This 110-nucleotide RNA from Nitratireductor pacificus belongs to the Rfam family "Rhizobiales sRNA Atu_At1". The family's consensus secondary structure was predicted with CMfinder.
RNA sequence: GAACCGCCCGUGUCAACCGGGCGUGACGGUAAGGAAUACAGGAUGGAUUUUCCCGGUUUCCCCACCUGGCAUCGGCGCAUCGGCAGACGCGCUCCUGUCCCGUCCGGGCG
Numbered sequence: 001g002a003a004c005c006g007c008c009c010g011u012g013u014c015a016a017c018c019g020g021g022c023g024u025g026a027c028g029g030u031a032a033g034g035a036a037u038a039c040a041g042g043a044u045g046g047a048u049u050u051u052c053c054c055g056g057u058u059u060c061c062c063c064a065c066c067u068g069g070c071a072u073c074g075g076c077g078c079a080u081c082g083g084c085a086g087a088c089g090c091g092c093u094c095c096u097g098u099c100c101c102g103u104c105c106g107g108g109c110g
Base pairs, nucleotide, nucleotide: 006109007108008107009106011023012022013021014020025104026103027102028100029099033095034094035093039068040067041066042065044064045063046062069084070083073082
Dot-bracket structure: .....((((.((((.....)))).(((((...(((...((((.(((...............)))))))((..(........)))........)))...)).))).)))).